[Rfam]
RNA: Bacterial large subunit ribosomal RNA, nucleotides 2637 to 2896
Organism: Clostridium fungisolvens
Nucleotides: 260
Base pairs, nucleotide, nucleotide: 001159002158003157004156005155006154007153008152011145012144013143014142017045018044019043020042021041022040023039047102048101049100050099051098055096056095057094062089063088064087065086066085067082068081069080070079071078072077106140107139108138113133114132115131116130117129162173163172164171175258178256179255180254181253182198183197184196185195186194203249204248205247206245207244208243209242210241212238213237219232220231221230222229223228
Number, partner (000 for none) and nucleotide at each position: 001159g002158g003157a004156a005155a006154u007153u008152u009000g010000a011145g012144a013143g014142g015000a016000g017045c018044u019043g020042u021041c022040c023039u024000u025000a026000g027000u028000a029000c030000g031000a032000g033000a034000g035000g036000a037000c038000c039023g040022g041021g042020a043019u044018g045017g046000a047102c048101u049100g050099a051098c052000c053000u054000c055096u056095g057094g058000u059000g060000c061000a062089c063088c064087a065086g066085u067082u068081g069080u070079u071078c072077c073000g074000c075000c076000a077072g078071g079070a080069g081068c082067a083000u084000a085066g086065c087064u088063g089062g090000g091000u092000a093000g094057c095056u096055a097000c098051g099050u100049c101048g102047g103000g104000a105000a106140g107139g108138g109000a110000u111000a112000a113133a114132c115131g116130c117129u118000g119000a120000a121000a122000g123000c124000a125000u126000c127000u128000a129117a130116g131115c132114g133113u134000g135000a136000a137000g138108c139107c140106c141000a142014c143013c144012u145011c146000a147000a148000g149000a150000u151000u152008a153007g154006a155005u156004u157003u158002c159001c160000c161000a162173u163172a164171g165000c166000g167000u168000a169000a170000g171164c172163u173162a174000g175258u176000a177000a178256g179255a180254c181253c182198c183197c184196u185195c186194g187000a188000a189000g190000a191000a192000c193000a194186c195185g196184a197183g198182g199000u200000u201000g202000a203249u204248a205247g206245g207244u208243c209242g210241g211000a212238g213237g214000u215000g216000u217000a218000a219232g220231c221230a222229u223228g224000g225000u226000a227000a228223c229222a230221u231220g232219u233000u234000c235000a236000g237213c238212u239000g240000a241210c242209c243208g244207a245206u246000a247205c248204u249203a250000a251000u252000a253181g254180g255179u256178c257000g258175a259000g260000g